[Rfam]
RNA: Selenocysteine insertion sequence 1
Organism: Erinaceus europaeus
RNA sequence: UUUGCAUCCAUGAAGGCUACAUAGAAAACCUUACUGAGGAUUUGUGUAGAUCUGAUGCUCAGCAAA
Number, nucleotide and partner (000 for none) at each position: 001u066002u065003u064004g063005c062006a000007u000008c000009c000010a000011u000012g000013a000014a000015g052016g051017c049018u048019a047020c046021a045022u044023a043024g042025a000026a000027a000028a000029c000030c039031u038032u037033a000034c000035u000036g000037a032038g031039g030040a000041u000042u024043u023044g022045u021046g020047u019048a018049g017050a000051u016052c015053u000054g000055a000056u000057g000058c000059u000060c000061a000062g005063c004064a003065a002066a001